[Rfam]
RNA sequence: GAACAUUGAAGCGGCAGGCGCUCCAUCAUGCGUUUACCGUGGAGUUCCGAAGGGUUGUGCGUAUUCCUCAAGGUGGAUAGGCGAGAACCGAAAGAAAACGCAACGC
Number, nucleotide and partner (000 for none) at each position: 001g047002a046003a045004c044005a000006u000007u000008g000009a000010a000011g040012c039013g038014g037015c000016a035017g034018g033019c032020g031021c030022u000023c076024c075025a074026u073027c000028a000029u000030g021031c020032g019033u018034u017035u016036a000037c014038c013039g012040u011041g000042g000043a000044g004045u003046u002047c001048c000049g000050a000051a000052g000053g000054g000055u000056u000057g000058u000059g101060c100061g099062u000063a000064u000065u000066c000067c000068u000069c000070a000071a000072g000073g026074u025075g024076g023077a000078u000079a000080g089081g088082c000083g000084a000085g000086a000087a000088c081089c080090g000091a000092a000093a000094g000095a000096a000097a000098a000099c061100g060101c059102a000103a000104c000105g000106c000
Rfam assigns this 106-nucleotide RNA sequence to the family "drum RNA". Rfam classes the family as a small RNA. Rfam's curators put it in the seed alignment.